[Rfam]
RNA sequence: CCCUCCUACAAAGGCACGUCUAUAGUUUCUUGUCUUCGGACAUGUAAGAAUUGGAGGCACAGAAAUGUGGACUUGGAGAAAUCUGGGGCCAACUUUGUGCUCACAGGCUCGACAUCAACCAUGCCACAUAG
Dot-bracket structure: .(((((........((.((((..((...)).......)))).))........)))))...........(.(.(.................(.(((.........))).)...........)).).......

The family of this 131-nucleotide RNA from Theropithecus gelada is "Small nucleolar RNA SNORA38". Rfam classes the family as an H/ACA-box small nucleolar RNA. Its family is annotated with RNA processing, nucleolus and Cajal body in the Gene Ontology. ACA38 is a member of the H/ACA class of snoRNA that guide the sites of modification of uridines to pseudouridines. The organism belongs to Theropithecus, within Eukaryota. It scores 123 bits against the family's covariance model. Pairs were carried over by alignment from the consensus structure, which was predicted with RNAfold.